[Rfam]
L31-Gammaproteobacteria ribosomal protein leader: a 51-nucleotide RNA.
The family is grouped with related families in Rfam's "Ribosomal Protein L31 Leader clan".
RNA sequence: CGCAUGGUGUUCGUGGAGAGCACGGAUGGCGAUGCGGCCUUCAACUGAGGU
Numbered sequence: 001c002g003c004a005u006g007g008u009g010u011u012c013g014u015g016g017a018g019a020g021c022a023c024g025g026a027u028g029g030c031g032a033u034g035c036g037g038c039c040u041u042c043a044a045c046u047g048a049g050g051u
Stems, first nucleotide, its partner, number of pairs: 001036005007030002011025005
Dot-bracket structure: (((((.((..(((((.....)))))...)).)))))...............

By type it is a cis-regulatory leader. The literature on the family includes a 2020 paper in BMC Microbiol by Eckert and Weinberg, "Discovery of 20 novel ribosomal leader candidates in bacteria and archaea".